[Rfam]
RNA sequence: CUGCAUCCAGUAGAAAUUGAACCUACAAAUUCGUCAAUUACGAGUUGGGUGGUGCUUUAAUCAUUCAGUCGUCGAUGC
Numbered sequence: 001c002u003g004c005a006u007c008c009a010g011u012a013g014a015a016a017u018u019g020a021a022c023c024u025a026c027a028a029a030u031u032c033g034u035c036a037a038u039u040a041c042g043a044g045u046u047g048g049g050u051g052g053u054g055c056u057u058u059a060a061u062c063a064u065u066c067a068g069u070c071g072u073c074g075a076u077g078c
Stems, first nucleotide, its partner, number of pairs: 003078005010026004040072003044069008
A member of the RNA family "Plastid-ycf2 5UTR RNA" from Cynara cardunculus, 78 nucleotides long. The match comes from Rfam's covariance-model search (68 bits). Pairs were carried over by alignment from the consensus structure, which was predicted with LocARNA. It is annotated as a cis-regulatory element. The literature on the family includes a 2023 paper in Plant Commun by Richter et al., "Retrograde signaling in plants: A critical review focusing on the GUN pathway and beyond". The family has 204 seed sequences and 3,521 matches in Rfam 15.1. Plastid ycf2 is a non-coding RNA (ncRNA) recognised in plastids. It was found in the prime untranslated region (5UTR) of ycf2 genes, it presents a tRNA-like motif which suggests it can be involved in mRNA maturation, particularly involved in defining the precise 5' end of the transcript.